[Rfam]
RNA: MIR2912 microRNA precursor family
Organism: Populus tomentosa
RNA sequence: UCUAGAUCUCGAGAUAUGGGCUGAACACUGAAUAGCGUCUAGGCUGCAGGAUAGAUUCGAACUUCUCCGUUAUUGCUAUAAUUUGGAGUUGAAAACAGCCUUUUUAAAUCUUGGACUCUACAUGAAAGUUGUAGGCCUAUGUCUUACCGAAUCUCUC
Numbered sequence: 001u002c003u004a005g006a007u008c009u010c011g012a013g014a015u016a017u018g019g020g021c022u023g024a025a026c027a028c029u030g031a032a033u034a035g036c037g038u039c040u041a042g043g044c045u046g047c048a049g050g051a052u053a054g055a056u057u058c059g060a061a062c063u064u065c066u067c068c069g070u071u072a073u074u075g076c077u078a079u080a081a082u083u084u085g086g087a088g089u090u091g092a093a094a095a096c097a098g099c100c101u102u103u104u105u106a107a108a109u110c111u112u113g114g115a116c117u118c119u120a121c122a123u124g125a126a127a128g129u130u131g132u133a134g135g136c137c138u139a140u141g142u143c144u145u146a147c148c149g150a151a152u153c154u155c156u157c
Stems, first nucleotide, its partner, number of pairs: 004154004009146001011145010021134003025130001027129003035123001037121001041119003045115001048112005054105002059100001062098002073087002